[Rfam]
Shown here is a 70-nucleotide sequence, a member of the family "Hairpin ribozyme 1 from viruses-like metatranscriptomes". The base pairs follow the family's consensus structure, which is taken from published work.
RNA sequence: GAGCAGUCCCUCUACGGAGGAGAGGCUCGCCAGGGAAACACGCAUCUCCAGAUGUGGCAUAUUAACUGGC
Numbered sequence: 001g002a003g004c005a006g007u008c009c010c011u012c013u014a015c016g017g018a019g020g021a022g023a024g025g026c027u028c029g030c031c032a033g034g035g036a037a038a039c040a041c042g043c044a045u046c047u048c049c050a051g052a053u054g055u056g057g058c059a060u061a062u063u064a065a066c067u068g069g070c
Stems, first nucleotide, its partner, number of pairs: 001028004009020004029070005041056006

Notes
Rfam's curators put it in the seed alignment. Gene Ontology term of the family: RNA nuclease activity. The literature on the family includes a 2021 paper in Nucleic Acids Res by Weinberg et al., "Identification of over 200-fold more hairpin ribozymes than previously known in diverse circular RNAs".